[Rfam]
RNA sequence: UGAGCGCGUCGUGACUGGCGUUCGGAUGGGUCACCAUCGGGGAGCGACGAGACGGAGAAGCGGCCGUACGCCUGGGCCGCGACG
Dot-bracket structure: ....(.((((((..(([[[[[....((((....))))..))..)))))).).........(((((..]]]]]..))))).....
Numbered sequence: 001u002g003a004g005c006g007c008g009u010c011g012u013g014a015c016u017g018g019c020g021u022u023c024g025g026a027u028g029g030g031u032c033a034c035c036a037u038c039g040g041g042g043a044g045c046g047a048c049g050a051g052a053c054g055g056a057g058a059a060g061c062g063g064c065c066g067u068a069c070g071c072c073u074g075g076g077c078c079g080c081g082a083c084g
Stems, first nucleotide, its partner, number of pairs: 005051001007049006015041002017072005026037004061079005
A member of the RNA family "ZMP/ZTP riboswitch aptamer (pfl RNA motif)" from Homoserinibacter sp. GY 40078, 84 nucleotides long.
Its family is annotated with one-carbon metabolic process and regulation of purine nucleotide biosynthetic process in the Gene Ontology.
Lineage of the source: Bacteria > Actinomycetes > Micrococcales > Microbacteriaceae > Homoserinibacter.